The family of this 132-nucleotide RNA sequence from Sporomusa silvacetica is "PyrR binding site". The source organism's lineage runs through Bacteria, Bacillati, Bacillota, Sporomusaceae and Sporomusa silvacetica. Rfam classes the family as a cis-regulatory element.

RNA sequence: GGUACCUUUAAAAGCAGUCCUGCGAGACUGACAAGGUGGACGACAUUUAGCGGGCAAUAGCAUCCUAUUUUUAUACUGUUGCCAGUUGGUCUACAGGCUUCUUGUCAGUUUAACUGAUAAGAAGCCUUUUUU
Numbered sequence: 001g002g003u004a005c006c007u008u009u010a011a012a013a014g015c016a017g018u019c020c021u022g023c024g025a026g027a028c029u030g031a032c033a034a035g036g037u038g039g040a041c042g043a044c045a046u047u048u049a050g051c052g053g054g055c056a057a058u059a060g061c062a063u064c065c066u067a068u069u070u071u072u073a074u075a076c077u078g079u080u081g082c083c084a085g086u087u088g089g090u091c092u093a094c095a096g097g098c099u100u101c102u103u104g105u106c107a108g109u110u111u112a113a114c115u116g117a118u119a120a121g122a123a124g125c126c127u128u129u130u131u132u
Stems, first nucleotide, its partner, number of pairs: 003038006015030005050086002053083008062074002095127014